[Rfam]
sodF sRNA: an 87-nucleotide sequence from Streptomyces sp. A73. Lineage of the source: Bacteria > Bacillati > Actinomycetes > Kitasatosporales > Streptomyces. On this family, see Kim et al., Nucleic Acids Res 2014: "Inverse regulation of Fe- and Ni-containing SOD genes by a Fur family regulator Nur through small RNA processed from 3'UTR of the sodF mRNA". The base pairs follow the family's consensus structure.
RNA sequence: GCUUCCGUCCUCGUGAUCGUCUUCUCACCGUUCCGGGGCGGAGGACGGCGGGGCCCCUGGUGUGGACGUGACACACCAGGGGACCCG
Numbered sequence: 001g002c003u004u005c006c007g008u009c010c011u012c013g014u015g016a017u018c019g020u021c022u023u024c025u026c027a028c029c030g031u032u033c034c035g036g037g038g039c040g041g042a043g044g045a046c047g048g049c050g051g052g053g054c055c056c057c058u059g060g061u062g063u064g065g066a067c068g069u070g071a072c073a074c075a076c077c078a079g080g081g082g083a084c085c086c087g
Stems, first nucleotide, its partner, number of pairs: 002043002005041007015033002019029001049087004054082011